[Rfam]
RNA sequence: UGCGAUGAGUCGAGAUGGGUCAGGCAGCUUCGGCUGUUUCGCUGCGGCGACUAGUGACCAUUUCACCGGCACACAUUAACUACCGGAUUUUGUAGGUGUGGGUCAAUUUGGGUGUGUGAGCCACUC
Numbered sequence: 001u002g003c004g005a006u007g008a009g010u011c012g013a014g015a016u017g018g019g020u021c022a023g024g025c026a027g028c029u030u031c032g033g034c035u036g037u038u039u040c041g042c043u044g045c046g047g048c049g050a051c052u053a054g055u056g057a058c059c060a061u062u063u064c065a066c067c068g069g070c071a072c073a074c075a076u077u078a079a080c081u082a083c084c085g086g087a088u089u090u091u092g093u094a095g096g097u098g099u100g101g102g103u104c105a106a107u108u109u110g111g112g113u114g115u116g117u118g119a120g121c122c123a124c125u126c
Base pairs, nucleotide, nucleotide: 018059019058020057021056022055023038024037025036026035027034028033039050040049041048042047069099070098071097072096080095081094082093083092111125112124113123114122115120
Record summary:
The family of this 126-nucleotide RNA is "Enterococcus sRNA 68 (Lacto-3 RNA)". On this family, see Innocenti et al., RNA 2015: "Whole-genome mapping of 5' RNA ends in bacteria by tagged sequencing: a comprehensive view in Enterococcus faecalis". The sequence is in the family's curated seed alignment.